[Rfam]
RNA sequence: AUGUGCAUAAGAGUUCCCUUGACCACUUCAUGAGGGAUUAAUUCAUUGUUUGAAGUCCUGCUGAAGUGUUUGGGGGAACUCCUAGGUUUAC
Numbered sequence: 001a002u003g004u005g006c007a008u009a010a011g012a013g014u015u016c017c018c019u020u021g022a023c024c025a026c027u028u029c030a031u032g033a034g035g036g037a038u039u040a041a042u043u044c045a046u047u048g049u050u051u052g053a054a055g056u057c058c059u060g061c062u063g064a065a066g067u068g069u070u071u072g073g074g075g076g077a078a079c080u081c082c083u084a085g086g087u088u089u090a091c
Stems, first nucleotide, its partner, number of pairs: 005087002008084002011081010022071001024068007033059003

Shown here is a 91-nucleotide RNA from Capsicum baccatum, a member of the family "mir-395 microRNA precursor family".
It scores 66 bits against the family's covariance model.
From the family's description: mir-395 was identified in both Arabidopsis thaliana and Oryza sativa computationally and was later experimentally verified. mir-395 is thought to target mRNAs coding for ATP sulphurylases. The mature sequence is excised from the 3' arm of the hairpin.
Rfam links the family to the GO terms miRNA-mediated post-transcriptional gene silencing and RISC complex.
The organism belongs to Capsicum, within Eukaryota.